This 190-nucleotide RNA from Erwinia tasmaniensis belongs to the Rfam family "Lysine riboswitch aptamer". The base pairs follow the family's consensus structure, which is taken from published work. The source organism's lineage runs through Bacteria, Pseudomonadati, Pseudomonadota, Gammaproteobacteria and Erwinia. The family has 47 seed sequences and 3,224 matches in Rfam 15.1.
[Rfam]
RNA sequence: CAGGCCAGAAGAGGCGCGUCGCCCAGGCAGUGUGUUGGAGGAACCGAAUCCAGAGAUAACACAUCAGGGGGAGCGACGCCGAGGUAUCAACCACGCGGAGUGGGGCGUAUCGACCGCAGGGGCUGAAUCCUCUGGGUUGUCACCAGCAACGUCCGGUAGUCGGGCGGCAAGGUGGGGCGCUUCUGGGUGA
Numbered sequence: 001c002a003g004g005c006c007a008g009a010a011g012a013g014g015c016g017c018g019u020c021g022c023c024c025a026g027g028c029a030g031u032g033u034g035u036u037g038g039a040g041g042a043a044c045c046g047a048a049u050c051c052a053g054a055g056a057u058a059a060c061a062c063a064u065c066a067g068g069g070g071g072a073g074c075g076a077c078g079c080c081g082a083g084g085u086a087u088c089a090a091c092c093a094c095g096c097g098g099a100g101u102g103g104g105g106c107g108u109a110u111c112g113a114c115c116g117c118a119g120g121g122g123c124u125g126a127a128u129c130c131u132c133u134g135g136g137u138u139g140u141c142a143c144c145a146g147c148a149a150c151g152u153c154c155g156g157u158a159g160u161c162g163g164g165c166g167g168c169a170a171g172g173u174g175g176g177g178c179g180c181u182u183c184u185g186g187g188u189g190a
Stems, first nucleotide, its partner, number of pairs: 006185006016079007024071001030064008083111005091103004112138004117134006140175005